[Rfam]
A member of the RNA family "Small nucleolar RNA snoR31/Z110/Z27" from Capsella rubella, 97 nucleotides long. About the family: This family contains several related snoRNAs including R31, Z27 and Z110. On this family, see Chen et al., Nucleic Acids Res 2003: "The high diversity of snoRNAs in plants: identification and comparative study of 120 snoRNA genes from Oryza sativa". Lineage of the source: Eukaryota > Euphyllophyta > Gunneridae > Brassicaceae > Capsella. It scores 81 bits against the family's covariance model.
RNA sequence: CUGAAGAAGUGAUGAGAAAUCAGAUAAAUCUUAGGACACCUUCUGACACAGAACUAACUCUCUGUGUAUGAGAAAGACAUCAUAUUCUGAUCUUCAG
Numbered sequence: 001c002u003g004a005a006g007a008a009g010u011g012a013u014g015a016g017a018a019a020u021c022a023g024a025u026a027a028a029u030c031u032u033a034g035g036a037c038a039c040c041u042u043c044u045g046a047c048a049c050a051g052a053a054c055u056a057a058c059u060c061u062c063u064g065u066g067u068a069u070g071a072g073a074a075a076g077a078c079a080u081c082a083u084a085u086u087c088u089g090a091u092c093u094u095c096a097g
Stems, first nucleotide, its partner, number of pairs: 001097007044050002